[Rfam]
RNA sequence: AAGUUAUUUUAAACAGUGUUUUAAAUAACUU
Number, nucleotide and partner (000 for none) at each position: 001a031002a030003g029004u028005u027006a026007u025008u000009u024010u023011a022012a021013a020014c018015a000016g000017u000018g014019u000020u013021u012022u011023a010024a009025a007026u006027a005028a004029c003030u002031u001
Annotation: This 31-nucleotide RNA sequence from Corvus moneduloides belongs to the Rfam family "Iron response element II". The family has 30 seed sequences and 5,197 matches in Rfam 15.1. The match comes from Rfam's covariance-model search (32 bits). Rfam's curators write: IRE, TFRC, SLC40A1, SDHB, SLC11A2, CDC42BPA, ACO2, ALAS2_H.SAPIENS, CDC14A, EPAS1, ALAS2, qoxD, Hao1, NDUFS1, transferrin, Aconitate. NCBI's taxonomy places the organism under Eukaryota, Dipnotetrapodomorpha, Tetrapoda, Neognathae, Corvus.